[Rfam]
RNA sequence: AAAAAAAUCCCGCAGAAGUCGGACUUCUGCGGGUGCCUGACAUAAGCAGCCGAACUGCUUAGAAAGGCUAUGGGAGAGGAGAAACCGGAGGAAGAACUUAUGGGGAAACGUAAGUCUUCUCCGCGG
Number, nucleotide and partner (000 for none) at each position: 001a000002a000003a000004a000005a000006a000007a000008u000009c000010c000011c031012g030013c029014a028015g027016a026017a025018g024019u023020c000021g000022g000023a019024c018025u017026u016027c015028u014029g013030c012031g011032g000033g000034u074035g000036c072037c000038u070039g000040a000041c000042a000043u061044a060045a059046g058047c057048a056049g000050c000051c000052g000053a000054a000055c000056u048057g047058c046059u045060u044061a043062g000063a000064a000065a000066g000067g000068c000069u000070a038071u000072g036073g000074g034075a000076g000077a000078g000079g000080a000081g000082a000083a000084a000085c000086c123087g122088g121089a120090g000091g119092a118093a117094g116095a000096a115097c114098u113099u112100a111101u000102g000103g000104g000105g000106a000107a000108a000109c000110g000111u100112a099113a098114g097115u096116c094117u093118u092119c091120u089121c088122c087123g086124c000125g000126g000

Source information: The family of this 126-nucleotide sequence from Alteribacter lacisalsi is "ylbH leader". It scores 86 bits against the family's covariance model. A reference for the family is Barrick et al. (2004), "New RNA motifs suggest an expanded scope for riboswitches in bacterial genetic control", Proc Natl Acad Sci U S A. This family is a putative regulatory RNA structure that is found upstream of the ylbH gene in B. subtilis and related low GC Gram-positive bacteria.